The family of this 72-nucleotide RNA from Saimiri boliviensis is "Small nucleolar RNA SNORD59". The match comes from Rfam's covariance-model search (72 bits). Lineage of the source: Eukaryota > Deuterostomia > Mammalia > Boreoeutheria > Saimiri boliviensis. On this family, see Galardi et al., Mol Cell Biol 2002: "Purified box C/D snoRNPs are able to reproduce site-specific 2'-O-methylation of target RNA in vitro". Rfam classes the family as a C/D-box small nucleolar RNA. Its Rfam clan is "SNORD59 clan". Pairs were carried over by alignment from the consensus structure, which was predicted with ILM.

RNA sequence: CCUUCUGUGAUGAUUUUAUCAAAAUGACUUUUGUUCUGAGUUUGCUGAAGCCACCUUUAGGUACUGAGAAGG
Number, nucleotide and partner (000 for none) at each position: 001c072002c071003u070004u000005c068006u000007g000008u000009g000010a000011u000012g000013a000014u000015u000016u000017u000018a000019u000020c000021a000022a000023a000024a000025u000026g000027a000028c000029u000030u000031u000032u000033g000034u000035u000036c000037u000038g000039a000040g000041u000042u000043u000044g000045c000046u000047g000048a000049a000050g000051c000052c000053a000054c000055c000056u000057u000058u000059a000060g000061g000062u000063a000064c000065u000066g000067a000068g005069a000070a003071g002072g001